[Rfam]
RNA sequence: AACUUAUCCAGAAAGGCAGAGGGAAAUGGCCCUAUGAUGCCUUGGCAACCCAUACCACUUACUCAGCGGUACGAAGGUGCCAAUUCCGUCCACAAAAGUGGAAAGAUAAGUC
Numbered sequence: 001a002a003c004u005u006a007u008c009c010a011g012a013a014a015g016g017c018a019g020a021g022g023g024a025a026a027u028g029g030c031c032c033u034a035u036g037a038u039g040c041c042u043u044g045g046c047a048a049c050c051c052a053u054a055c056c057a058c059u060u061a062c063u064c065a066g067c068g069g070u071a072c073g074a075a076g077g078u079g080c081c082a083a084u085u086c087c088g089u090c091c092a093c094a095a096a097a098g099u100g101g102a103a104a105g106a107u108a109a110g111u112c
Base pairs, nucleotide, nucleotide: 002111003110004109005108006107007106008105013043014042015041016040017039021032022031023030026089027088028087029086044081045080046079047078049077050076051073053071054070055069056068085104090101091100092099093098